[Rfam]
RNA sequence: AUCUUAUCAAGAGCGGUGGAGGGACUGGCCCGACGAAACCCGGCAACUCUAGUGAAAACUAGAAAGUGCUAAAUCCUGCAGGUAUAUAACCUGGAAGAUAAGAG
Numbered sequence: 001a002u003c004u005u006a007u008c009a010a011g012a013g014c015g016g017u018g019g020a021g022g023g024a025c026u027g028g029c030c031c032g033a034c035g036a037a038a039c040c041c042g043g044c045a046a047c048u049c050u051a052g053u054g055a056a057a058a059c060u061a062g063a064a065a066g067u068g069c070u071a072a073a074u075c076c077u078g079c080a081g082g083u084a085u086a087u088a089a090c091c092u093g094g095a096a097g098a099u100a101a102g103a104g
Base pairs, nucleotide, nucleotide: 002103003102004101005100006099007098008097013041015040016039017038021031022030023029025078027076028075042070043069044068045067047066048065049062050061051060052059074096079093080092081091082090083089

Rfam assigns this 104-nucleotide RNA to the family "SAM riboswitch aptamer (S box leader)". Pairs were carried over by alignment from the consensus structure, which is taken from published work. A search with the family's covariance model found it, with a score of 92 bits. The family is grouped with related families in Rfam's "SAM clan".